RNA: serC leader
Organism: Paracoccus onubensis
RNA sequence: CCUUGGGCAACCCUUCCCCAACGAAGGGCAAUUAGCUGGAAGGCUGAAAGAU
Number, nucleotide and partner (000 for none) at each position: 001c000002c000003u000004u000005g000006g000007g000008c000009a000010a000011c028012c027013c026014u025015u024016c023017c000018c000019c000020a000021a000022c000023g016024a015025a014026g013027g012028g011029c000030a000031a000032u047033u046034a045035g044036c043037u042038g000039g000040a000041a000042g037043g036044c035045u034046g033047a032048a000049a000050g000051a000052u000